[Rfam]
RNA sequence: AAAAAAGCAAACCCUGAGUUUUCGUGUCCAACUUUGACUGUCCGUUUUAUAUGAAUUUUUUUUAUAAUCUGUAUUUUCAUUGUUGUUAGAUGAUAAAACAUAAUUAAUAUUUUAUGCGUGACUUGUCUUUUUAAUUUUUUUUCAUAAUUUUUUCAAAUAAGACGGACGGUUAAACGUUGGACACGAAAAUCAGGGUUUGUCUUUUU
Numbered sequence: 001a002a003a004a005a006a007g008c009a010a011a012c013c014c015u016g017a018g019u020u021u022u023c024g025u026g027u028c029c030a031a032c033u034u035u036g037a038c039u040g041u042c043c044g045u046u047u048u049a050u051a052u053g054a055a056u057u058u059u060u061u062u063u064a065u066a067a068u069c070u071g072u073a074u075u076u077u078c079a080u081u082g083u084u085g086u087u088a089g090a091u092g093a094u095a096a097a098a099c100a101u102a103a104u105u106a107a108u109a110u111u112u113u114a115u116g117c118g119u120g121a122c123u124u125g126u127c128u129u130u131u132u133a134a135u136u137u138u139u140u141u142u143c144a145u146a147a148u149u150u151u152u153u154c155a156a157a158u159a160a161g162a163c164g165g166a167c168g169g170u171u172a173a174a175c176g177u178u179g180g181a182c183a184c185g186a187a188a189a190u191c192a193g194g195g196u197u198u199g200u201c202u203u204u205u206u
Base pairs, nucleotide, nucleotide: 027181028180029179030178031177032176033174034173035172036171037170038169039168040167041166042165043164044163045162046161047160048159049158050157
This 206-nucleotide RNA sequence from Oryza rufipogon belongs to the Rfam family "MIR812 microRNA precursor family". Taxonomically the source falls in Oryza (Eukaryota, Spermatophyta, Mesangiospermae, Liliopsida). The match comes from Rfam's covariance-model search (146 bits).